[Rfam]
Shown here is a 77-nucleotide RNA sequence from Zootermopsis nevadensis, a member of the family "mir-9/mir-79 microRNA precursor family". NCBI's taxonomy places the organism under Eukaryota, Protostomia, Altocrustacea, Dicondylia, Zootermopsis. The family's consensus secondary structure was predicted with RNAalifold. The match comes from Rfam's covariance-model search (70 bits).
RNA sequence: GUUGUCCUCUCUUUGGUGAUCUAGCUGUAUGAGUGCGAGUGGACGUCAUAAAGCUAAAUUACCGAAGUCAGGAAAAC
Numbered sequence: 001g002u003u004g005u006c007c008u009c010u011c012u013u014u015g016g017u018g019a020u021c022u023a024g025c026u027g028u029a030u031g032a033g034u035g036c037g038a039g040u041g042g043a044c045g046u047c048a049u050a051a052a053g054c055u056a057a058a059u060u061a062c063c064g065a066a067g068u069c070a071g072g073a074a075a076a077c
Stems, first nucleotide, its partner, number of pairs: 001077003005073001007071002011067010022056005028050005